Small nucleolar RNA snoR99: a 100-nucleotide sequence from Paspalum vaginatum. The family has 9 seed sequences and 733 matches in Rfam 15.1. Taxonomically the source falls in Paspalum (Eukaryota, Tracheophyta, Magnoliopsida, Paspaleae).
RNA sequence: GUGCCUGUGGGAUGAACAGGUCCGUAUAUUAACACCAUUUUAAUCACUUUGUCAGCUAUAAUCACACAUUAUUAGCUGAUCAUUUAAGAAUGGGAAAUGU
Numbered sequence: 001g002u003g004c005c006u007g008u009g010g011g012a013u014g015a016a017c018a019g020g021u022c023c024g025u026a027u028a029u030u031a032a033c034a035c036c037a038u039u040u041u042a043a044u045c046a047c048u049u050u051g052u053c054a055g056c057u058a059u060a061a062u063c064a065c066a067c068a069u070u071a072u073u074a075g076c077u078g079a080u081c082a083u084u085u086a087a088g089a090a091u092g093g094g095a096a097a098u099g100u
Base pairs, nucleotide, nucleotide: 035093036092037091038090039089051080052079053078054077055076056075057074058073
It is annotated as an H/ACA-box small nucleolar RNA.